[Rfam]
RNA sequence: GGGAAACAGUGGCGAGACCCGGGUAAAGAGCCGACCCAAGUCUCAGCUUCCCCCAGGCUCU
Dot-bracket structure: .............(((((..((((...[[[[[.))))..)))))...........]]]]].
RNA: Ma3 gene ribosomal frameshift signal
Organism: Alligator sinensis